[Rfam]
About this RNA:
Small nucleolar RNA SNORD22: a 128-nucleotide RNA sequence from Sphaeramia orbicularis. Pairs were carried over by alignment from the consensus structure, which was predicted with PFOLD. It is annotated as a C/D-box small nucleolar RNA. The family has 49 seed sequences and 1,081 matches in Rfam 15.1. The literature on the family includes a 1996 paper in Nature by Tycowski et al., "A mammalian gene with introns instead of exons generating stable RNA products".

Nucleotides: 128
Base pairs, nucleotide, nucleotide: 001127002126003125004124
Number, partner (000 for none) and nucleotide at each position: 001127c002126u003125c004124u005000u006000a007000u008000g009000a010000u011000g012000a013000c014000a015000c016000c017000c018000g019000c020000a021000c022000a023000c024000g025000u026000c027000u028000u029000a030000c031000g032000c033000c034000u035000u036000g037000u038000g039000u040000c041000a042000a043000u044000g045000c046000c047000a048000g049000a050000c051000c052000u053000g054000a055000g056000a057000a058000g059000g060000u061000g062000a063000a064000c065000c066000c067000a068000c069000u070000g071000g072000u073000g074000u075000u076000g077000c078000c079000u080000u081000g082000g083000c084000a085000a086000u087000a088000a089000g090000g091000g092000g093000a094000a095000g096000a097000c098000c099000u100000g101000u102000u103000g104000g105000g106000g107000u108000u109000a110000c111000c112000a113000a114000c115000a116000g117000u118000c119000u120000g121000a122000a123000u124004g125003g126002a127001g128000a